Shown here is an 82-nucleotide RNA from Leptidea sinapis, a member of the family "bantam microRNA precursor family". The literature on the family includes a 2007 paper in Genome Biol by Weaver et al., "Computational and transcriptional evidence for microRNAs in the honey bee genome". A search with the family's covariance model found it, with a score of 81 bits. Clan: mir-81 clan. Pairs were carried over by alignment from the consensus structure, which was predicted with RNAalifold.
[Rfam]
RNA sequence: AUAGAUGUACGAGACUGGUUUUCAUAAUGAUUUGACAGAUUGUUGAUUAUUCUGAGAUCAUUGUGAAAGCUGAUUUUGUUGC
Number, nucleotide and partner (000 for none) at each position: 001a000002u000003a000004g000005a000006u000007g000008u000009a079010c078011g077012a076013g075014a074015c000016u072017g071018g070019u069020u068021u067022u066023c065024a064025u063026a000027a000028u060029g059030a058031u057032u056033u055034g000035a000036c000037a000038g000039a000040u000041u000042g000043u000044u000045g000046a000047u000048u000049a000050u000051u000052c000053u000054g000055a033056g032057a031058u030059c029060a028061u000062u000063g025064u024065g023066a022067a021068a020069g019070c018071u017072g016073a000074u014075u013076u012077u011078g010079u009080u000081g000082c000